[Rfam]
RNA: TPP riboswitch aptamer (THI element)
Organism: Acinetobacter sp. TGL-Y2
RNA sequence: CAUCGCUUGACGGAGCGCGAGUAAUCACUCGCUGAGAUCACCUAAAUGCUGAACAUUUAAAGGUGAGUACCGUUGAACCUGAUCAGGUUAAUACCUGCGUAGGAAUCAAGCCAGCUAAAAUU
Number, nucleotide and partner (000 for none) at each position: 001c000002a000003u000004c000005g000006c110007u109008u108009g107010a106011c072012g071013g070014a000015g000016c000017g032018c031019g030020a029021g028022u000023a000024a000025u000026c000027a000028c021029u020030c019031g018032c017033u000034g000035a000036g000037a000038u000039c065040a064041c063042c062043u061044a000045a000046a000047u000048g000049c000050u000051g000052a000053a000054c000055a000056u000057u000058u000059a000060a000061a043062g042063g041064u040065g039066a000067g000068u000069a000070c013071c012072g011073u000074u000075g000076a000077a000078c103079c102080u101081g100082a000083u000084c097085a096086g095087g094088u000089u000090a000091a000092u000093a000094c087095c086096u085097g084098c000099g000100u081101a080102g079103g078104a000105a000106u010107c009108a008109a007110g006111c000112c000113a000114g000115c000116u000117a000118a000119a000120a000121u000122u000